[Rfam]
RNA sequence: AGAUUUGGUUGUAGAACGCAACCAAAUAAAAAUAAAGAAAGUUCAAUUGAA
Numbered sequence: 001a002g003a004u005u006u007g008g009u010u011g012u013a014g015a016a017c018g019c020a021a022c023c024a025a026a027u028a029a030a031a032a033u034a035a036a037g038a039a040a041g042u043u044c045a046a047u048u049g050a051a
Stems, first nucleotide, its partner, number of pairs: 006024006014044004
This 51-nucleotide sequence belongs to the Rfam family "6A RNA". The family's consensus secondary structure is taken from published work. The family's RNA type in Rfam is small RNA.